[Rfam]
RNA sequence: UUUUGAAUGCGGGACUGGCGGAUAGUGGGGCUCACCACGUGGACCGUAUUUCGAGUGUAUAGCCGACCGCCUGGGCAAGAGAG
Numbered sequence: 001u002u003u004u005g006a007a008u009g010c011g012g013g014a015c016u017g018g019c020g021g022a023u024a025g026u027g028g029g030g031c032u033c034a035c036c037a038c039g040u041g042g043a044c045c046g047u048a049u050u051u052c053g054a055g056u057g058u059a060u061a062g063c064c065g066a067c068c069g070c071c072u073g074g075g076c077a078a079g080a081g082a083g
Base pairs, nucleotide, nucleotide: 003053005051006050007049008048009047010046011045012044015041017071018070019069020068021067025038026037027036028035060078062076063075064074
Dot-bracket structure: ..(.((((((((..(.[[[[[...((((......))))..)..)))))))).)......(.(((..]]]]]..))).).....
The family of this 83-nucleotide RNA sequence from Sporomusa ovata is "ZMP/ZTP riboswitch aptamer (pfl RNA motif)". Gene Ontology terms of the family: regulation of purine nucleotide biosynthetic process and one-carbon metabolic process. It scores 60 bits against the family's covariance model.